[Rfam]
RNA sequence: CCCGCAGAUGGACGGAAAGACCCCAUGAACCUUUACUGUAAUCUGAUAUUGUUGUUCGGACUAAUAUGUGUAGCAUAAGUGGGAGACUGUGAACUUGCGUCGUCAGGCGUUUGUGAGUCGUCAGUGAAAUACCACCCUUAUUAGUUUGGGCAUCUAACCCCACGUCCGUGAAUCCGGAUGGGGGACAGUUUCAGAGGGUCAGUUUGACUGGGGCGGUUUCCUCCUAAAAUGUAACGGAGGAGCUCGAAGGUCUACUCAGCAUGGUCAGCAAUCAUGCGUAGAGCGUAAGGGUAGAAGUAGGCUUUACUGUAACACCGACAGGUGGAGCAGUUGCGAAAGCAGGACCUAGUGAUCCAGCGGUGGAAAGUGGUAUCGCCGUUGCUCAUCGGAUAAAAGGUACUCUGGGGAUAACAGGCUUAUCGCACCCAAGCGUCCAUAGCGACGGUGCGGUUUGGCACCUCGAUGUCGGCUCAUCACAUCCUGGGGCUGAAGAAGGUCCCAAGGGUCCGGCUGUUCGCCGGUUAAAGUGGUACGCGAGCUGGGUUCAGAACGUCGUGAGACAGUUCGGUCCUUAUCCUCUGCGGGCGUA
Numbered sequence: 001c002c003c004g005c006a007g008a009u010g011g012a013c014g015g016a017a018a019g020a021c022c023c024c025a026u027g028a029a030c031c032u033u034u035a036c037u038g039u040a041a042u043c044u045g046a047u048a049u050u051g052u053u054g055u056u057c058g059g060a061c062u063a064a065u066a067u068g069u070g071u072a073g074c075a076u077a078a079g080u081g082g083g084a085g086a087c088u089g090u091g092a093a094c095u096u097g098c099g100u101c102g103u104c105a106g107g108c109g110u111u112u113g114u115g116a117g118u119c120g121u122c123a124g125u126g127a128a129a130u131a132c133c134a135c136c137c138u139u140a141u142u143a144g145u146u147u148g149g150g151c152a153u154c155u156a157a158c159c160c161c162a163c164g165u166c167c168g169u170g171a172a173u174c175c176g177g178a179u180g181g182g183g184g185a186c187a188g189u190u191u192c193a194g195a196g197g198g199u200c201a202g203u204u205u206g207a208c209u210g211g212g213g214c215g216g217u218u219u220c221c222u223c224c225u226a227a228a229a230u231g232u233a234a235c236g237g238a239g240g241a242g243c244u245c246g247a248a249g250g251u252c253u254a255c256u257c258a259g260c261a262u263g264g265u266c267a268g269c270a271a272u273c274a275u276g277c278g279u280a281g282a283g284c285g286u287a288a289g290g291g292u293a294g295a296a297g298u299a300g301g302c303u304u305u306a307c308u309g310u311a312a313c314a315c316c317g318a319c320a321g322g323u324g325g326a327g328c329a330g331u332u333g334c335g336a337a338a339g340c341a342g343g344a345c346c347u348a349g350u351g352a353u354c355c356a357g358c359g360g361u362g363g364a365a366a367g368u369g370g371u372a373u374c375g376c377c378g379u380u381g382c383u384c385a386u387c388g389g390a391u392a393a394a395a396g397g398u399a400c401u402c403u404g405g406g407g408a409u410a411a412c413a414g415g416c417u418u419a420u421c422g423c424a425c426c427c428a429a430g431c432g433u434c435c436a437u438a439g440c441g442a443c444g445g446u447g448c449g450g451u452u453u454g455g456c457a458c459c460u461c462g463a464u465g466u467c468g469g470c471u472c473a474u475c476a477c478a479u480c481c482u483g484g485g486g487c488u489g490a491a492g493a494a495g496g497u498c499c500c501a502a503g504g505g506u507c508c509g510g511c512u513g514u515u516c517g518c519c520g521g522u523u524a525a526a527g528u529g530g531u532a533c534g535c536g537a538g539c540u541g542g543g544u545u546c547a548g549a550a551c552g553u554c555g556u557g558a559g560a561c562a563g564u565u566c567g568g569u570c571c572u573u574a575u576c577c578u579c580u581g582c583g584g585g586c587g588u589a
Stems, first nucleotide, its partner, number of pairs: 001585008010577003014572002022406004027402002029398005035203004042195005048189001051154001053152014068137001079135004085119003094113001097110005158183003163180006206218004219241006242387001244344002250302006256282002259277006283292002307330004313324003332341003355381007363374002415456003419453001420450007430440002467542001468540004472534001473531005480505002483500006507521005548566004552561003

Annotation:
The family of this 589-nucleotide part of an RNA from Lentisphaera araneosa is "Bacterial large subunit ribosomal RNA". The family's consensus secondary structure is taken from published work. Rfam's curators put it in the seed alignment.